[Rfam]
RNA sequence: AGUCUUGGGGUAAGUGCUGUACGGCCAGCUCCCUUUGAACUCCAUCAGGACCGGAAGGUAGCAGUGGUAGAAGGUUGUAGCGGUGCGAUGCAGUUAGCUUACCCCAUU
Number, nucleotide and partner (000 for none) at each position: 001a000002g000003u000004c000005u000006u000007g000008g104009g103010g102011u101012a100013a099014g098015u097016g000017c093018u092019g091020u090021a089022c087023g086024g084025c083026c000027a000028g000029c000030u000031c000032c000033c000034u000035u000036u000037g000038a000039a000040c000041u000042c000043c000044a000045u000046c000047a000048g000049g000050a000051c000052c000053g000054g000055a000056a000057g000058g000059u000060a000061g000062c000063a000064g000065u000066g000067g000068u000069a000070g000071a000072a000073g000074g000075u000076u000077g000078u000079a000080g000081c000082g000083g025084u024085g000086c023087g022088a000089u021090g020091c019092a018093g017094u000095u000096a000097g015098c014099u013100u012101a011102c010103c009104c008105c000106a000107u000108u000
This 108-nucleotide sequence from a Rhodothermaceae bacterium belongs to the Rfam family "Bacteroidales small SRP". A search with the family's covariance model found it, with a score of 96 bits. Its Rfam clan is "SRP clan". The family's consensus secondary structure is taken from published work. The source organism's lineage runs through Bacteria, Pseudomonadati, Rhodothermota, Rhodothermales and Rhodothermaceae.